[Rfam]
RNA sequence: UGAACAUCAUAUGACUGACGGAAGUGGAGUUACCACAUGAAGUAUGAUGUUAUAGGCCGACCGUCUGGGCAAGUUUA
Numbered sequence: 001u002g003a004a005c006a007u008c009a010u011a012u013g014a015c016u017g018a019c020g021g022a023a024g025u026g027g028a029g030u031u032a033c034c035a036c037a038u039g040a041a042g043u044a045u046g047a048u049g050u051u052a053u054a055g056g057c058c059g060a061c062c063g064u065c066u067g068g069g070c071a072a073g074u075u076u077a
Stems, first nucleotide, its partner, number of pairs: 003051010015039001017065005024036004056070003
RNA: ZMP/ZTP riboswitch aptamer (pfl RNA motif)